Overview:
Rfam assigns this 135-nucleotide RNA sequence from Erinaceus europaeus to the family "Small nucleolar RNA SNORA41". The sequence is in the family's curated seed alignment. From the family's description: ACA41 is a member of the H/ACA class of snoRNA that guide the sites of modification of uridines to pseudouridines. The base pairs follow the family's consensus structure, which was predicted with PFOLD. By type it is an H/ACA-box small nucleolar RNA. Its family is annotated with nucleolus and RNA processing in the Gene Ontology.
RNA sequence: UUCCACAGCUAGUGAUAUGCAACUGUUCUUAAGGUAGCAGUUGUGACAUUCUUCUGUGAGAAAGAAAUAAUGACACAAAUUUAAAUACCUCUUGCCUAGCAAAACAGAAAGUUGGCAUAUGUGUGACAAAUAAGA
Numbered sequence: 001u002u003c004c005a006c007a008g009c010u011a012g013u014g015a016u017a018u019g020c021a022a023c024u025g026u027u028c029u030u031a032a033g034g035u036a037g038c039a040g041u042u043g044u045g046a047c048a049u050u051c052u053u054c055u056g057u058g059a060g061a062a063a064g065a066a067a068u069a070a071u072g073a074c075a076c077a078a079a080u081u082u083a084a085a086u087a088c089c090u091c092u093u094g095c096c097u098a099g100c101a102a103a104a105c106a107g108a109a110a111g112u113u114g115g116c117a118u119a120u121g122u123g124u125g126a127c128a129a130a131u132a133a134g135a
Base pairs, nucleotide, nucleotide: 004058005057006056018045019044020043021042022041023040024039025038073124074123075122076121077120088115089114091111092110093109095107